[Rfam]
RNA sequence: AGCCUAUUUGUACGGGUCGAGUACAA
Numbered sequence: 001a002g003c004c005u006a007u008u009u010g011u012a013c014g015g016g017u018c019g020a021g022u023a024c025a026a
Stems, first nucleotide, its partner, number of pairs: 002017004008026004
About this RNA:
Shown here is a 26-nucleotide RNA sequence from Furovirus cerealis, a member of the family "Pseudoknot of upstream pseudoknot domain (UPD) of the 3'UTR". Rfam classes the family as a cis-regulatory element. It is one of the family's seed sequences. Pairs were carried over by alignment from the consensus structure, which is taken from published work. Taxonomically the source falls in Furovirus cerealis (Viruses, Kitrinoviricota, Alsuviricetes, Furovirus).